Background:
Clostridiales-1 RNA: a 167-nucleotide sequence from Oscillospiraceae bacterium Marseille-Q3528. Taxonomically the source falls in Oscillospiraceae (Bacteria, Bacillati, Clostridia, Eubacteriales). The match comes from Rfam's covariance-model search (112 bits). Rfam classes the family as a small RNA.
RNA sequence: AGAUUACAAUGUUCCAAAGUCUGAACCUGCCUGUGCUUGCACAUGGGCAGGUGAUAGACCUUGGAACAUGCCCGGACAUGAGCAUAGAAGGGAAGCGUGAGCUUUCCGAUAUGCGAAUGGCAGAUAAAUUGUGAGAGUGCGAAGCACGGAACAAUUUAUUGUAAUCU
Number, nucleotide and partner (000 for none) at each position: 001a167002g166003a165004u164005u163006a162007c161008a000009a000010u000011g067012u066013u065014c064015c000016a000017a061018a000019g059020u058021c057022u056023g000024a000025a052026c051027c050028u049029g048030c047031c046032u043033g042034u041035g040036c000037u000038u000039g000040c035041a034042c033043a032044u000045g000046g031047g030048c029049a028050g027051g026052u025053g000054a000055u000056a022057g021058a020059c019060c000061u017062u000063g000064g014065a013066a012067c011068a000069u000070g000071c000072c000073c123074g000075g121076a000077c119078a118079u117080g000081a000082g114083c113084a112085u111086a000087g000088a000089a000090g107091g106092g105093a104094a103095g102096c101097g000098u000099g000100a000101g096102c095103u094104u093105u092106c091107c090108g000109a000110u000111a085112u084113g083114c082115g000116a000117a079118u078119g077120g000121c075122a000123g073124a000125u000126a157127a156128a155129u154130u153131g152132u151133g000134a000135g000136a000137g147138u146139g145140c144141g000142a000143a000144g140145c139146a138147c137148g000149g000150a000151a132152c131153a130154a129155u128156u127157u126158a000159u000160u000161g007162u006163a005164a004165u003166c002167u001